The record is a 262-nucleotide RNA from Clostridium sp. chh4-2, which matches "Bacterial large signal recognition particle RNA" in Rfam. From the family's description: The signal recognition particle (SRP) is a universally conserved ribonucleoprotein involved in the co-translational targeting of proteins to membranes. By type it is a non-coding RNA gene. Rfam links the family to the GO terms signal recognition particle, plasma membrane targeting and SRP-dependent cotranslational protein targeting to membrane, signal sequence recognition.
RNA sequence: CCGUGCAGCCGGGGAGAUAGCGGUGCCCUGUACCUGCAAUCCGCUCUAGCAGGGGUGAUGCUUUGCCUCGGAUAUGCUACUGUAGAGCUGCCUUUGGUAAGUGGCGAUGACGUUUGGGUCUUACGCAACAGAAAUUCAUGAACCGUGUCAGGGCAGGAAUGCAGCAGCACUAAGUGGAACCUUCUGUGUGCCGUGAGGCAGCCUGGACUGAGUUAACUGCCAGAGUAACGUUUAUGGUAGGUAUACAAAGCAAAGCGCACGG
Numbered sequence: 001c002c003g004u005g006c007a008g009c010c011g012g013g014g015a016g017a018u019a020g021c022g023g024u025g026c027c028c029u030g031u032a033c034c035u036g037c038a039a040u041c042c043g044c045u046c047u048a049g050c051a052g053g054g055g056u057g058a059u060g061c062u063u064u065g066c067c068u069c070g071g072a073u074a075u076g077c078u079a080c081u082g083u084a085g086a087g088c089u090g091c092c093u094u095u096g097g098u099a100a101g102u103g104g105c106g107a108u109g110a111c112g113u114u115u116g117g118g119u120c121u122u123a124c125g126c127a128a129c130a131g132a133a134a135u136u137c138a139u140g141a142a143c144c145g146u147g148u149c150a151g152g153g154c155a156g157g158a159a160u161g162c163a164g165c166a167g168c169a170c171u172a173a174g175u176g177g178a179a180c181c182u183u184c185u186g187u188g189u190g191c192c193g194u195g196a197g198g199c200a201g202c203c204u205g206g207a208c209u210g211a212g213u214u215a216a217c218u219g220c221c222a223g224a225g226u227a228a229c230g231u232u233u234a235u236g237g238u239a240g241g242u243a244u245a246c247a248a249a250g251c252a253a254a255g256c257g258c259a260c261g262g
Stems, first nucleotide, its partner, number of pairs: 001262006008056003011029004016024001018022001033053005062255003067250002070246001072244004077240010089227002093224006101217002103214003112208008120197006126188002129186005135178005145170004153162003